[Rfam]
The family of this 97-nucleotide RNA sequence from Flavobacterium sp. Leaf359 is "SAM-I/IV (S-adenosyl methionine) riboswitch aptamer".
Its Rfam clan is "SAM clan".
Taxonomically the source falls in Flavobacterium (Bacteria, Flavobacteriia, Flavobacteriales, Flavobacteriaceae).

RNA sequence: AUCCGUUAUCACGAAUCUCAUAAAGAGAUAGCAACCUGCAACAACAAGCAAGGUGCUAAAACGAUAAGCCAAAUCCUUUGGAAAAAAUGUUGCCAUU
Numbered sequence: 001a002u003c004c005g006u007u008a009u010c011a012c013g014a015a016u017c018u019c020a021u022a023a024a025g026a027g028a029u030a031g032c033a034a035c036c037u038g039c040a041a042c043a044a045c046a047a048g049c050a051a052g053g054u055g056c057u058a059a060a061a062c063g064a065u066a067a068g069c070c071a072a073a074u075c076c077u078u079u080g081g082a083a084a085a086a087a088u089g090u091u092g093c094c095a096u097u
Stems, first nucleotide, its partner, number of pairs: 006067005015029005030057003035053003038049002044091001069081004